[Rfam]
RNA sequence: ACCUGACACCUUCACUACGGAUCGUCCGGCACGUACCUGCCGGUGGAGGAGUUGCAU
Numbered sequence: 001a002c003c004u005g006a007c008a009c010c011u012u013c014a015c016u017a018c019g020g021a022u023c024g025u026c027c028g029g030c031a032c033g034u035a036c037c038u039g040c041c042g043g044u045g046g047a048g049g050a051g052u053u054g055c056a057u
Stems, first nucleotide, its partner, number of pairs: 009049006026043006
Shown here is a 57-nucleotide RNA sequence from Georgenia yuyongxinii, a member of the family "msiK RNA".